[Rfam]
RNA: PhotoRC-II RNA
RNA sequence: UUACAUGUCUCACCCACGCCUCACCAGGACUAAACAGCGUGGUAAAACAAGAGUCCUUCAUACCCACUCUGGAGGGUAGAGUGGGAAUACUAUACCCA
Numbered sequence: 001u002u003a004c005a006u007g008u009c010u011c012a013c014c015c016a017c018g019c020c021u022c023a024c025c026a027g028g029a030c031u032a033a034a035c036a037g038c039g040u041g042g043u044a045a046a047a048c049a050a051g052a053g054u055c056c057u058u059c060a061u062a063c064c065c066a067c068u069c070u071g072g073a074g075g076g077u078a079g080a081g082u083g084g085g086a087a088u089a090c091u092a093u094a095c096c097c098a
Stems, first nucleotide, its partner, number of pairs: 015041005026057005063085007